[Rfam]
RNA: Small nucleolar RNA Z152/R70/R12/
Organism: Taxus chinensis
RNA sequence: AAUGCUGUGAUGAGGCUUGCCCUUUUGGGGCUUGGCAGUGGUAGGGUUUCCUGCCGUGAGCCUUAAUAAAAACGACUUCUUCUUCCACUGAGCAUU
Numbered sequence: 001a002a003u004g005c006u007g008u009g010a011u012g013a014g015g016c017u018u019g020c021c022c023u024u025u026u027g028g029g030g031c032u033u034g035g036c037a038g039u040g041g042u043a044g045g046g047u048u049u050c051c052u053g054c055c056g057u058g059a060g061c062c063u064u065a066a067u068a069a070a071a072a073c074g075a076c077u078u079c080u081u082c083u084u085c086c087a088c089u090g091a092g093c094a095u096u
Stems, first nucleotide, its partner, number of pairs: 001096005